[Rfam]
Rfam assigns this 89-nucleotide RNA from Caenorhabditis elegans to the family "mir-46/mir-47/mir-281 microRNA precursor family".
Rfam 15.1 lists 307 matches to the family in 262 species.
It is one of the family's seed sequences.
Rfam links the family to the GO terms miRNA-mediated post-transcriptional gene silencing and RISC complex.
Pairs were carried over by alignment from the consensus structure, which was predicted with RNAalifold.
The organism belongs to Caenorhabditis, within Eukaryota.

RNA sequence: GCCGACUGAAACUGAAGAGAGCAGUCUAUUGACAGUCGGUUACUCGAAAUCUUUACUGUCAUGGAGGCGCUCUCUUCAGAUGAUGUCUG
Numbered sequence: 001g002c003c004g005a006c007u008g009a010a011a012c013u014g015a016a017g018a019g020a021g022c023a024g025u026c027u028a029u030u031g032a033c034a035g036u037c038g039g040u041u042a043c044u045c046g047a048a049a050u051c052u053u054u055a056c057u058g059u060c061a062u063g064g065a066g067g068c069g070c071u072c073u074c075u076u077c078a079g080a081u082g083a084u085g086u087c088u089g
Base pairs, nucleotide, nucleotide: 014077015076016075017074018073020071021070022069025065026064027063028062031060032059033058035056036055